[Rfam]
RNA sequence: CGCUGGCGGAGACAUCACAGAUCUAGGGACUUGGGGGUUAGUUGAGUGUGAGAGGUAAGCGCCGCGGCCUGCUUUUCCGGACCUGCCCUUCGCCGUGUCCGCUGCUGCUCCUGACCCCGGGCCCUGUCGCACUCAGGUCGGUACCCUCGGUGCGCUCCCGUGCUGCGGCCUGUGGCUGGAUUGCCUGCGACGUCCUGCCUGCCUGCUGACCGAGUGGCCGACGGCGCCGGCAAGAUGAAGCUCUCCCUGGUGGCUGCGGUGCUGCUG
Numbered sequence: 001c002g003c004u005g006g007c008g009g010a011g012a013c014a015u016c017a018c019a020g021a022u023c024u025a026g027g028g029a030c031u032u033g034g035g036g037g038u039u040a041g042u043u044g045a046g047u048g049u050g051a052g053a054g055g056u057a058a059g060c061g062c063c064g065c066g067g068c069c070u071g072c073u074u075u076u077c078c079g080g081a082c083c084u085g086c087c088c089u090u091c092g093c094c095g096u097g098u099c100c101g102c103u104g105c106u107g108c109u110c111c112u113g114a115c116c117c118c119g120g121g122c123c124c125u126g127u128c129g130c131a132c133u134c135a136g137g138u139c140g141g142u143a144c145c146c147u148c149g150g151u152g153c154g155c156u157c158c159c160g161u162g163c164u165g166c167g168g169c170c171u172g173u174g175g176c177u178g179g180a181u182u183g184c185c186u187g188c189g190a191c192g193u194c195c196u197g198c199c200u201g202c203c204u205g206c207u208g209a210c211c212g213a214g215u216g217g218c219c220g221a222c223g224g225c226g227c228c229g230g231c232a233a234g235a236u237g238a239a240g241c242u243c244u245c246c247c248u249g250g251u252g253g254c255u256g257c258g259g260u261g262c263u264g265c266u267g
Stems, first nucleotide, its partner, number of pairs: 004256004009251001016162003020158001030120002033117003061105002064102004166178005
A member of the RNA family "bip internal ribosome entry site (IRES)" from Diceros bicornis, 267 nucleotides long. Its family is annotated with ribosome binding in the Gene Ontology. The literature on the family includes a 2002 paper in Biochem Biophys Res Commun by Kim and Jang, "Continuous heat shock enhances translational initiation directed by internal ribosomal entry site". Lineage of the source: Eukaryota > Sarcopterygii > Amniota > Theria > Diceros bicornis. Rfam describes the family as follows. This family represents the bip internal ribosome entry site (IRES). BiP protein expression has been found to be significantly enhanced by the heat shock response due to IRES-dependent translation. It is thought that this translational mechanism is essential for the survival of cells under stress.